This 79-nucleotide sequence from Kocuria flava belongs to the Rfam family "Actino-pnp RNA". Taxonomically the source falls in Kocuria (Bacteria, Bacillati, Actinomycetota, Actinomycetes). It scores 59 bits against the family's covariance model.
[Rfam]
RNA sequence: CGCGGUCCUCGGUAGUGAUCUCCGGAACCCGGACGGCCCACGGCCGCCGGUGGUCCGUGGAUCUCGAUCGAAGACCGGG
Numbered sequence: 001c002g003c004g005g006u007c008c009u010c011g012g013u014a015g016u017g018a019u020c021u022c023c024g025g026a027a028c029c030c031g032g033a034c035g036g037c038c039c040a041c042g043g044c045c046g047c048c049g050g051u052g053g054u055c056c057g058u059g060g061a062u063c064u065c066g067a068u069c070g071a072a073g074a075c076c077g078g079g
Stems, first nucleotide, its partner, number of pairs: 001079001003077005009071005017063005023057004028053002

It is annotated as a cis-regulatory element.